[Rfam]
RNA sequence: CAAUGAUCAUAUGAUGUAUUUCCCCACCCUAUCGGUUUGAUUGCUGGGGAUGAUGGCAUCAGUUUUGUAUUAGCUCUCUCUGUUUGUUC
Numbered sequence: 001c002a003a004u005g006a007u008c009a010u011a012u013g014a015u016g017u018a019u020u021u022c023c024c025c026a027c028c029c030u031a032u033c034g035g036u037u038u039g040a041u042u043g044c045u046g047g048g049g050a051u052g053a054u055g056g057c058a059u060c061a062g063u064u065u066u067g068u069a070u071u072a073g074c075u076c077u078c079u080c081u082g083u084u085u086g087u088u089c
Base pairs, nucleotide, nucleotide: 002088003087004086005085039060042058043057044056045055
Rfam assigns this 89-nucleotide sequence from Hevea brasiliensis to the family "Small nucleolar RNA Z102/R77". Gene Ontology terms of the family: RNA processing and nucleolus. Pairs were carried over by alignment from the consensus structure, which was predicted with PFOLD. By type it is a C/D-box small nucleolar RNA. A search with the family's covariance model found it, with a score of 53 bits. Its Rfam clan is "SNORD44 clan". On this family, see Barneche et al., J Mol Biol 2001: "Identification of 66 box C/D snoRNAs in Arabidopsis thaliana: extensive gene duplications generated multiple isoforms predicting new ribosomal RNA 2'-O-methylation sites".